[Rfam]
RNA: mir-46/mir-47/mir-281 microRNA precursor family
RNA sequence: AAUGUGAGUGGCCGAAGAGAGCCAUCCUUUGACAUUUUGAUAUUUAAUUGAUGUCAUGGAAUCGCUCUCUUCUGCCCUUAUGUU
Numbered sequence: 001a002a003u004g005u006g007a008g009u010g011g012c013c014g015a016a017g018a019g020a021g022c023c024a025u026c027c028u029u030u031g032a033c034a035u036u037u038u039g040a041u042a043u044u045u046a047a048u049u050g051a052u053g054u055c056a057u058g059g060a061a062u063c064g065c066u067c068u069c070u071u072c073u074g075c076c077c078u079u080a081u082g083u084u
Base pairs, nucleotide, nucleotide: 014072015071016070017069018068020066021065022064025060026059027058031055032054033053035051036050